[Rfam]
RNA sequence: CCGCGCAGCCGGGAAGAUAGCGGCGUCCUGUACCUGCAAUCCGCUACAGCAGGGGUGAUGGUCGGCCUCGGGUUUAUUUUGUAGGGCUGCCCUUUAUAAGUGAUGUUGACGUUUGGGUCUUAUGCAAUGGAAUCCUGUGAACCGUGUCAGGUCAGGAAUGAAGCAGCACUAAGCAGAUCAUUUCAUGUGACAUGAGGAAGCCUAGACCGAGUUAACUGUAAAGGUAACGCUUAUGGAAUACUCACAAAGCAGAUCGCGCGG
Numbered sequence: 001c002c003g004c005g006c007a008g009c010c011g012g013g014a015a016g017a018u019a020g021c022g023g024c025g026u027c028c029u030g031u032a033c034c035u036g037c038a039a040u041c042c043g044c045u046a047c048a049g050c051a052g053g054g055g056u057g058a059u060g061g062u063c064g065g066c067c068u069c070g071g072g073u074u075u076a077u078u079u080u081g082u083a084g085g086g087c088u089g090c091c092c093u094u095u096a097u098a099a100g101u102g103a104u105g106u107u108g109a110c111g112u113u114u115g116g117g118u119c120u121u122a123u124g125c126a127a128u129g130g131a132a133u134c135c136u137g138u139g140a141a142c143c144g145u146g147u148c149a150g151g152u153c154a155g156g157a158a159u160g161a162a163g164c165a166g167c168a169c170u171a172a173g174c175a176g177a178u179c180a181u182u183u184c185a186u187g188u189g190a191c192a193u194g195a196g197g198a199a200g201c202c203u204a205g206a207c208c209g210a211g212u213u214a215a216c217u218g219u220a221a222a223g224g225u226a227a228c229g230c231u232u233a234u235g236g237a238a239u240a241c242u243c244a245c246a247a248a249g250c251a252g253a254u255c256g257c258g259c260g261g
Base pairs, nucleotide, nucleotide: 001261002260003259004258005257006256008056009055010054011029012028013027014026016024018022033053034052035051036050037049062253063252065250066249068247070243071242072241074240076239077238078237079236080235081234082233083232084231085230088226089225092223093222094221095220096219097218100216101215102213103212104211111207112206113205114204115203116202117201118200119196120195121194122193123192124191125187126186128185129184130183131182132181135176136175137174138173144169145168146167147166152161153160154159
RNA: Bacterial large signal recognition particle RNA